[Rfam]
A member of the RNA family "DUF805b RNA" from Flavobacterium sp. HMWF030, 33 nucleotides long. The match comes from Rfam's covariance-model search (38 bits). Pairs were carried over by alignment from the consensus structure, which is taken from published work.
Nucleotides: 033
Base pairs, nucleotide, nucleotide: 002020003019004018005017009032010031011030
Number, partner (000 for none) and nucleotide at each position: 001000a002020a003019g004018g005017a006000g007000u008000a009032g010031c011030c012000g013000a014000a015000a016000a017005u018004c019003c020002u021000a022000a023000a024000a025000g026000a027000g028000u029000a030011g031010g032009u033000g